This 32-nucleotide sequence from Bacilli bacterium VT-13-104 belongs to the Rfam family "L31-Firmicutes ribosomal protein leader". Its Rfam clan is "Ribosomal Protein L31 Leader clan". By type it is a cis-regulatory leader.

RNA sequence: CUCUGUUUCCAAGGGAUUCAGGGCAUAAGGAG
Numbered sequence: 001c002u003c004u005g006u007u008u009c010c011a012a013g014g015g016a017u018u019c020a021g022g023g024c025a026u027a028a029g030g031a032g
Stems, first nucleotide, its partner, number of pairs: 001023005008016003